[Rfam]
RNA: Actino-pnp RNA
Organism: Nocardioides sp. GY 10113
RNA sequence: UUCGAUCCUCGGUAGUGGCUCCCGCUGCACUGCAGCGAGGGCCUCGAUCGAAGAUCGGC
Numbered sequence: 001u002u003c004g005a006u007c008c009u010c011g012g013u014a015g016u017g018g019c020u021c022c023c024g025c026u027g028c029a030c031u032g033c034a035g036c037g038a039g040g041g042c043c044u045c046g047a048u049c050g051a052a053g054a055u056c057g058g059c
Stems, first nucleotide, its partner, number of pairs: 002058006009051005017043005023037006